[Rfam]
RNA sequence: GAUUUAUUGUCGCUUAAUCUUUUUUAAGAGCGGGGGACCCAAAUUUUUAUUACGGAUAUUUUUCCGUUAUAGGUGAAUUCUUUAAAUGAAAGGGCUUUCGUUUCCGAAGUCCUAACCUGAAAGCUAACCUCGUAAGCGUUUACAGGAAACGGU
Dot-bracket structure: ..........((((...(((......)))((((((...................................(((.....((.(...).))..((((.............))))...))).........)))))).))))...............
c-di-AMP riboswitch aptamer (ydaO/yuaA leader): a 153-nucleotide RNA from Lysinibacillus composti. Rfam's curators write: This family represents a conserved RNA structure found upstream of the ydaO and yuaA genes in Bacillus subtilis and related genes in other bacteria. The organism belongs to Lysinibacillus, within Bacteria. Rfam links the family to the GO terms regulation of gene expression and cyclic-di-AMP binding.